[Rfam]
RNA sequence: GCUAUCCGCUAAACACUGGACAGAUCUGGACAACCAGUACAUAAAGUGUAGAGAUAGCCAGUCUCAGUUCUUAAUUGGACUACGUUAUUCAGGUCAUGGCACCUGCGAGUGCUUUCCAGCUUGUAGCUCUGCCGUUCAGUUUUAAACAUUCCUAUUUAGCUAAGAAAGUGAACUGAGCCAAACAAGCCUAAGUAACAUUGACGAGGAAACAAUUAC
Numbered sequence: 001g002c003u004a005u006c007c008g009c010u011a012a013a014c015a016c017u018g019g020a021c022a023g024a025u026c027u028g029g030a031c032a033a034c035c036a037g038u039a040c041a042u043a044a045a046g047u048g049u050a051g052a053g054a055u056a057g058c059c060a061g062u063c064u065c066a067g068u069u070c071u072u073a074a075u076u077g078g079a080c081u082a083c084g085u086u087a088u089u090c091a092g093g094u095c096a097u098g099g100c101a102c103c104u105g106c107g108a109g110u111g112c113u114u115u116c117c118a119g120c121u122u123g124u125a126g127c128u129c130u131g132c133c134g135u136u137c138a139g140u141u142u143u144a145a146a147c148a149u150u151c152c153u154a155u156u157u158a159g160c161u162a163a164g165a166a167a168g169u170g171a172a173c174u175g176a177g178c179c180a181a182a183c184a185a186g187c188c189u190a191a192g193u194a195a196c197a198u199u200g201a202c203g204a205g206g207a208a209a210c211a212a213u214u215a216c
Stems, first nucleotide, its partner, number of pairs: 001058006017022001026037004061202003066081005084196006091189004099132002103126008114209001115207003134178009146169002149166003153162002
The record is a 216-nucleotide RNA sequence from Aerosakkonema funiforme, which matches "HNH endonuclease-associated RNA and ORF (HEARO) RNA" in Rfam.
Pairs were carried over by alignment from the consensus structure, which is taken from published work.
On this family, see Weinberg et al., Nature 2009: "Exceptional structured noncoding RNAs revealed by bacterial metagenome analysis".
Rfam classes the family as a non-coding RNA gene.
The source organism's lineage runs through Bacteria, Oscillatoriophycideae, Aerosakkonemataceae, Aerosakkonema and Aerosakkonema funiforme.